[Rfam]
RNA sequence: GUUCUGGUCGGUAACCAGAACGCGAGUAAUAAGAGGAG
Number, nucleotide and partner (000 for none) at each position: 001g021002u020003u019004c018005u017006g016007g015008u014009c000010g000011g000012u000013a000014a008015c007016c006017a005018g004019a003020a002021c001022g000023c000024g000025a000026g000027u000028a000029a000030u000031a000032a000033g000034a000035g000036g000037a000038g000
Rfam assigns this 38-nucleotide RNA sequence to the family "L31-Coriobacteria ribosomal protein leader". The family's consensus secondary structure is taken from published work. The family's RNA type in Rfam is cis-regulatory leader. A reference for the family is Eckert and Weinberg (2020), "Discovery of 20 novel ribosomal leader candidates in bacteria and archaea", BMC Microbiol. Its Rfam clan is "Ribosomal Protein L31 Leader clan".